[Rfam]
RNA sequence: AGAACAUCGAUGAUGAAUGUAAUCCCUUUGUUAUCCUUGCACUUUGAUUGCUAGUGAAGAAAACCAUGGGGAGAUUCCAUACUGAGAUGAUU
Dot-bracket structure: .((.((((.............................................................................)))).))
Overview: Shown here is a 92-nucleotide sequence from Kingdonia uniflora, a member of the family "Small nucleolar RNA snoR26". A reference for the family is Brown et al. (2001), "Multiple snoRNA gene clusters from Arabidopsis", RNA. Rfam classes the family as a C/D-box small nucleolar RNA. The organism belongs to Kingdonia, within Eukaryota. It scores 77 bits against the family's covariance model. Its family is annotated with RNA processing and nucleolus in the Gene Ontology. Rfam 15.1 lists 611 matches to the family in 220 species. The family's consensus secondary structure was predicted with WAR.